[Rfam]
Shown here is a 76-nucleotide RNA sequence from Branchiostoma lanceolatum, a member of the family "mir-4872 microRNA precursor family".
RNA sequence: UCACACAAGAUGCCGGGGAAAUGAAAACUCUGAGUUUUGUCAGCAUCAGAGUUUCGUUGCCCUGGCUCCAUGUGGA
Numbered sequence: 001u002c003a004c005a006c007a008a009g010a011u012g013c014c015g016g017g018g019a020a021a022u023g024a025a026a027a028c029u030c031u032g033a034g035u036u037u038u039g040u041c042a043g044c045a046u047c048a049g050a051g052u053u054u055c056g057u058u059g060c061c062c063u064g065g066c067u068c069c070a071u072g073u074g075g076a
Stems, first nucleotide, its partner, number of pairs: 001076002004074004009069001012066006020058003025054009034044002

Gene Ontology terms of the family: miRNA-mediated post-transcriptional gene silencing and RISC complex.